[Rfam]
RNA sequence: UUUUUAUUGAAUGUUAACUUUCGUGUGUCAUGUGUUUAUUGAACGUUAAUUCUAUACACCUAAUUAAUAUCAAAUUCUAAUAAACUCAUGACAUGUGAUAGUCAACGUCU
Numbered sequence: 001u002u003u004u005u006a007u008u009g010a011a012u013g014u015u016a017a018c019u020u021u022c023g024u025g026u027g028u029c030a031u032g033u034g035u036u037u038a039u040u041g042a043a044c045g046u047u048a049a050u051u052c053u054a055u056a057c058a059c060c061u062a063a064u065u066a067a068u069a070u071c072a073a074a075u076u077c078u079a080a081u082a083a084a085c086u087c088a089u090g091a092c093a094u095g096u097g098a099u100a101g102u103c104a105a106c107g108u109c110u
Stems, first nucleotide, its partner, number of pairs: 021098003025094002029090003034085003038081003
Background:
The record is a 110-nucleotide RNA from Glycine max, which matches "MIR1520 microRNA precursor family" in Rfam. Clan: MIR1520 microRNA precursor clan. Gene Ontology terms of the family: miRNA-mediated post-transcriptional gene silencing and RISC complex. It scores 65 bits against the family's covariance model.